[Rfam]
RNA sequence: GGGGGUGGAUUGGGCCUGGUGGCUUGCCCGGACUUCAAAUCCGGCGGCGGGCGAGUUCGUCCGCGGUGGGUUCGAUUCCCACACACUCCC
Numbered sequence: 001g002g003g004g005g006u007g008g009a010u011u012g013g014g015c016c017u018g019g020u021g022g023c024u025u026g027c028c029c030g031g032a033c034u035u036c037a038a039a040u041c042c043g044g045c046g047g048c049g050g051g052c053g054a055g056u057u058c059g060u061c062c063g064c065g066g067u068g069g070g071u072u073c074g075a076u077u078c079c080c081a082c083a084c085a086c087u088c089c090c
Stems, first nucleotide, its partner, number of pairs: 001090007008082001011026006028044005047064005067081004
RNA: Selenocysteine transfer RNA
Organism: Gelria sp. Kuro-4